[Rfam]
RNA: raiA RNA
RNA sequence: CCCGUCCGGGUCCGUGGUUGCGUCGACCGUGGCGUGCCCUCAAUGGGGACGCCGGGUCGGCAAGCCGAUGCCAGCCGCAGGCGAAACGGCCCACGUAAGGCGACUUUUCGUCGACUGAUCACGGUGCGGCUUAGAGGUAAGUCCUGCCUCUUGGGAGGGCCCGAUGCCCUCCGGACAAGGGAGAAGGGUAGUAGUGGCGCACAAGCGCCGCGAGCCCCUCAGCAGGCGGAUGUGGGGACGAAGACCAGGUCGGCCGGGCGGG
Numbered sequence: 001c002c003c004g005u006c007c008g009g010g011u012c013c014g015u016g017g018u019u020g021c022g023u024c025g026a027c028c029g030u031g032g033c034g035u036g037c038c039c040u041c042a043a044u045g046g047g048g049a050c051g052c053c054g055g056g057u058c059g060g061c062a063a064g065c066c067g068a069u070g071c072c073a074g075c076c077g078c079a080g081g082c083g084a085a086a087c088g089g090c091c092c093a094c095g096u097a098a099g100g101c102g103a104c105u106u107u108u109c110g111u112c113g114a115c116u117g118a119u120c121a122c123g124g125u126g127c128g129g130c131u132u133a134g135a136g137g138u139a140a141g142u143c144c145u146g147c148c149u150c151u152u153g154g155g156a157g158g159g160c161c162c163g164a165u166g167c168c169c170u171c172c173g174g175a176c177a178a179g180g181g182a183g184a185a186g187g188g189u190a191g192u193a194g195u196g197g198c199g200c201a202c203a204a205g206c207g208c209c210g211c212g213a214g215c216c217c218c219u220c221a222g223c224a225g226g227c228g229g230a231u232g233u234g235g236g237g238a239c240g241a242a243g244a245c246c247a248g249g250u251c252g253g254c255c256g257g258g259c260g261g262g
Stems, first nucleotide, its partner, number of pairs: 001262009012253003015247005068233003071081001073131007090124002095119001098116002102111001122240001143226005148181005185219004194211002198207003